[Rfam]
The record is a 61-nucleotide sequence from Pristionchus pacificus, which matches "mir-8364 microRNA precursor family" in Rfam.
RNA sequence: UCUUCAUUCCGCGUGCUCUAUCACCGGUCAGAGUGCCGAGAGAGCGCGCGGAAUGAAGAGA
Dot-bracket structure: (((((((..(.((((((.(.((...............)).).)))))).)..)))))))..

The match comes from Rfam's covariance-model search (70 bits). Gene Ontology terms of the family: RISC complex and miRNA-mediated post-transcriptional gene silencing. Lineage of the source: Eukaryota > Bilateria > Ecdysozoa > Rhabditina > Pristionchus.